The record is an 81-nucleotide sequence from Paenibacillus graminis, which matches "Glycine riboswitch aptamer" in Rfam. This family represents the bacterial glycine riboswitch. Taxonomically the source falls in Paenibacillus (Bacteria, Bacilli, Caryophanales, Paenibacillaceae). Rfam 15.1 lists 9,425 matches to the family in 5,228 species. The base pairs follow the family's consensus structure.
RNA sequence: GGAGCAGCUUCUGGAGAGACCGUGGGGAUUCCCCGGCGCCGAAGGGUUCAUAAUCUCAGGCAAAAGGACAGAAGAGUACUG
Numbered sequence: 001g002g003a004g005c006a007g008c009u010u011c012u013g014g015a016g017a018g019a020c021c022g023u024g025g026g027g028a029u030u031c032c033c034c035g036g037c038g039c040c041g042a043a044g045g046g047u048u049c050a051u052a053a054u055c056u057c058a059g060g061c062a063a064a065a066g067g068a069c070a071g072a073a074g075a076g077u078a079c080u081g
Stems, first nucleotide, its partner, number of pairs: 008074006020036003038061003041057002045055003